[Rfam]
RNA: mir-268 microRNA precursor family
Organism: Caenorhabditis elegans
RNA sequence: GCUUUGAAGCGGCAAGAAUUAGAAGCAGUUUGGUGUCAGACACACUACUCACUCACUGCUUCUUGUUUUUUCUGCUUUCUUUGCUUUU
Numbered sequence: 001g002c003u004u005u006g007a008a009g010c011g012g013c014a015a016g017a018a019u020u021a022g023a024a025g026c027a028g029u030u031u032g033g034u035g036u037c038a039g040a041c042a043c044a045c046u047a048c049u050c051a052c053u054c055a056c057u058g059c060u061u062c063u064u065g066u067u068u069u070u071u072c073u074g075c076u077u078u079c080u081u082u083g084c085u086u087u088u
Base pairs, nucleotide, nucleotide: 008076009075010074011073012072014070015069016068017067018066019065021063022062023061024060025059026058027057028056029055033043034042035041036040